[Rfam]
RNA sequence: CUCUUAUCAAGAGAGGUGUAGGGACGGGCCCUAUGAUACCCAGCAACCGGCUUAAUUGCAUCGGUGCUAAUUCCCGCAGAGUUUACUCUGGCAGAUGAGAG
Numbered sequence: 001c002u003c004u005u006a007u008c009a010a011g012a013g014a015g016g017u018g019u020a021g022g023g024a025c026g027g028g029c030c031c032u033a034u035g036a037u038a039c040c041c042a043g044c045a046a047c048c049g050g051c052u053u054a055a056u057u058g059c060a061u062c063g064g065u066g067c068u069a070a071u072u073c074c075c076g077c078a079g080a081g082u083u084u085a086c087u088c089u090g091g092c093a094g095a096u097g098a099g100a101g
Base pairs, nucleotide, nucleotide: 001101002100003099004098005097006096007095008094013041015040016039017038021031022030023029025076026075027074028073042068043067044066045065047064048063050059051058072093077090078089079088080087081086

This 101-nucleotide RNA from Alkalicella caledoniensis belongs to the Rfam family "SAM riboswitch aptamer (S box leader)". Pairs were carried over by alignment from the consensus structure, which is taken from published work. Lineage of the source: Bacteria > Bacillota > Clostridia > Eubacteriales > Alkalicella. The match comes from Rfam's covariance-model search (86 bits).